IS605-orfB-I RNA: a 217-nucleotide RNA. The sequence is in the family's curated seed alignment.
[Rfam]
RNA sequence: ACCUUAUAUAGAUGUAGCCACGCAAGACAGUGGUGCAUCUCCCUGUAAGGUGGUGUUUCAAUAGAAGUAUAAACGACAAGCCUUAUUGCCUAGCUUUUGAGUUGAAAUAAGGUGAGUUUAUAUGGAAGAGGUUAACCGUAAGACCUUAAGUUGAAAAACUUUAAAUUGGAUCUAAAAGUCGAAUUUCUUAAUUUUCGCACUUUUUAGUUACGGUGGU
Numbered sequence: 001a002c003c004u005u006a007u008a009u010a011g012a013u014g015u016a017g018c019c020a021c022g023c024a025a026g027a028c029a030g031u032g033g034u035g036c037a038u039c040u041c042c043c044u045g046u047a048a049g050g051u052g053g054u055g056u057u058u059c060a061a062u063a064g065a066a067g068u069a070u071a072a073a074c075g076a077c078a079a080g081c082c083u084u085a086u087u088g089c090c091u092a093g094c095u096u097u098u099g100a101g102u103u104g105a106a107a108u109a110a111g112g113u114g115a116g117u118u119u120a121u122a123u124g125g126a127a128g129a130g131g132u133u134a135a136c137c138g139u140a141a142g143a144c145c146u147u148a149a150g151u152u153g154a155a156a157a158a159c160u161u162u163a164a165a166u167u168g169g170a171u172c173u174a175a176a177a178g179u180c181g182a183a184u185u186u187c188u189u190a191a192u193u194u195u196c197g198c199a200c201u202u203u204u205u206a207g208u209u210a211c212g213g214u215g216g217u
Stems, first nucleotide, its partner, number of pairs: 001051008010040006017034005022028001067123008081112007092103002095100001129146005135214006141167001148161005172207007180197004